RNA sequence: ACGGGAUCGGGGGGUUCCCACCAGCGCGGCAUCCAUACGGUCGCCAGACCGGCGCGCAGGGGCCAAUGGCGAGAUCGACCCUGUCCGGU
Numbered sequence: 001a002c003g004g005g006a007u008c009g010g011g012g013g014g015u016u017c018c019c020a021c022c023a024g025c026g027c028g029g030c031a032u033c034c035a036u037a038c039g040g041u042c043g044c045c046a047g048a049c050c051g052g053c054g055c056g057c058a059g060g061g062g063c064c065a066a067u068g069g070c071g072a073g074a075u076c077g078a079c080c081c082u083g084u085c086c087g088g089u
Stems, first nucleotide, its partner, number of pairs: 001089002004086004009081003013064003022059001024057005039076002041072005

The record is an 89-nucleotide RNA sequence, which matches "c-di-GMP-II-GAG riboswitch aptamer" in Rfam. Gene Ontology terms of the family: regulation of gene expression and cyclic-di-GMP binding. For this family Rfam cites "Bioinformatic analysis of riboswitch structures uncovers variant classes with altered ligand specificity" (Weinberg et al., Proc Natl Acad Sci U S A, 2017).